[Rfam]
Rfam assigns this 237-nucleotide sequence from Vicugna pacos to the family "Small nucleolar RNA SNORA53". Rfam's curators write: The snoRNA ACA53 belongs to the H/ACA family of pseudouridylation guide snoRNAs. Rfam 15.1 lists 1,090 matches to the family in 800 species. Gene Ontology terms of the family: RNA processing and nucleolus.
RNA sequence: UAUAUAAUUAAGAGUCAUGCUAAAUCUUACACUGAGUUCUACUUGUAAACUUCUGGCUUCUUGUAGUUCCAGUCAAAGAAACAUCCAGCAACUUUUUUUGGUUGUAUAGUCAAAGGUGCUUGAGUCAUUGGCGUGUGAGAUAAAUAUACCUGCAUGUUAGUCUUAGGUUCUGAUAGAAAUGACAUGCAAUUGUGCUGCCAUUUUUUACUAUCAGGGCUCGACUGGUGUGCGGACACU
Numbered sequence: 001u002a003u004a005u006a007a008u009u010a011a012g013a014g015u016c017a018u019g020c021u022a023a024a025u026c027u028u029a030c031a032c033u034g035a036g037u038u039c040u041a042c043u044u045g046u047a048a049a050c051u052u053c054u055g056g057c058u059u060c061u062u063g064u065a066g067u068u069c070c071a072g073u074c075a076a077a078g079a080a081a082c083a084u085c086c087a088g089c090a091a092c093u094u095u096u097u098u099u100g101g102u103u104g105u106a107u108a109g110u111c112a113a114a115g116g117u118g119c120u121u122g123a124g125u126c127a128u129u130g131g132c133g134u135g136u137g138a139g140a141u142a143a144a145u146a147u148a149c150c151u152g153c154a155u156g157u158u159a160g161u162c163u164u165a166g167g168u169u170c171u172g173a174u175a176g177a178a179a180u181g182a183c184a185u186g187c188a189a190u191u192g193u194g195c196u197g198c199c200a201u202u203u204u205u206u207a208c209u210a211u212c213a214g215g216g217c218u219c220g221a222c223u224g225g226u227g228u229g230c231g232g233a234c235a236c237u
Stems, first nucleotide, its partner, number of pairs: 005118002008115002012111001014086001017084003025079004031073004036069001039066004045060001047059002050056001088105006150232005157225001159223004169215008180207003184203001186198003